RNA sequence: AUCACUUCUCAGCCUUUUGGCUAAGAUCAAGGGUAGUAUCUGUUCUUAUCAGUUUAAUGUCUGUUAUGUCCUCUGUCUGAGGACAAUAUAUUGGAUGGAUUUUUGGAGCAGGGAGGUGGAGUGGGAGCUCAUUCCAUCCACUCUACACAUUGCCCUGAUAUUGCAGUACCUCCAGGAAUGGUGCAUCAGAA
Numbered sequence: 001a002u003c004a005c006u007u008c009u010c011a012g013c014c015u016u017u018u019g020g021c022u023a024a025g026a027u028c029a030a031g032g033g034u035a036g037u038a039u040c041u042g043u044u045c046u047u048a049u050c051a052g053u054u055u056a057a058u059g060u061c062u063g064u065u066a067u068g069u070c071c072u073c074u075g076u077c078u079g080a081g082g083a084c085a086a087u088a089u090a091u092u093g094g095a096u097g098g099a100u101u102u103u104u105g106g107a108g109c110a111g112g113g114a115g116g117u118g119g120a121g122u123g124g125g126a127g128c129u130c131a132u133u134c135c136a137u138c139c140a141c142u143c144u145a146c147a148c149a150u151u152g153c154c155c156u157g158a159u160a161u162u163g164c165a166g167u168a169c170c171u172c173c174a175g176g177a178a179u180g181g182u183g184c185a186u187c188a189g190a191a
Base pairs, nucleotide, nucleotide: 007026008025009024011022012021013020014019047066048065050063051062052061068084069083070082071081072080073079112144113143114142115141118138119137124135125134126133127132148183149182150181151180152179154176155175156174157173

About this RNA:
A member of the RNA family "U2 spliceosomal RNA" from Vicugna pacos, 191 nucleotides long. From the family's description: U2 is a small nuclear RNA (snRNA) component of the spliceosome (involved in pre-mRNA splicing). Complementary binding between U2 snRNA (in an area lying towards the 5' end but 3' to hairpin I) and the branchpoint sequence (BPS) of the intron results the bulging out of an unpaired adenosine, on the BPS, which initiates a nucleophilic attack at the intronic 5' splice site, thus starting the first of two transesterification reactions that mediate splicing. The family's RNA type in Rfam is spliceosomal small nuclear RNA. Rfam links the family to the GO terms pre-mRNA branch point binding, U2 snRNP and mRNA branch site recognition.